The record is an 83-nucleotide sequence from Eptatretus burgeri, which matches "mir-143 microRNA precursor family" in Rfam. Gene Ontology terms of the family: miRNA-mediated post-transcriptional gene silencing and RISC complex.
RNA sequence: AAGCUGCUUGCCAGGGGAGCAGUACUGCAUCUCUGGUGAGUCCAAGUCUGAGAUGAAGCACUGUGACCCUGGUAGGCAGUAAU
Dot-bracket structure: ..........(((..(..(((((.((.((((((.(((.......).)).)))))).)).)))))..)..)))...........
Numbered sequence: 001a002a003g004c005u006g007c008u009u010g011c012c013a014g015g016g017g018a019g020c021a022g023u024a025c026u027g028c029a030u031c032u033c034u035g036g037u038g039a040g041u042c043c044a045a046g047u048c049u050g051a052g053a054u055g056a057a058g059c060a061c062u063g064u065g066a067c068c069c070u071g072g073u074a075g076g077c078a079g080u081a082a083u
Stems, first nucleotide, its partner, number of pairs: 011072003016067001019064005025058002028055006035048002037045001

The organism belongs to Eptatretus, within Eukaryota.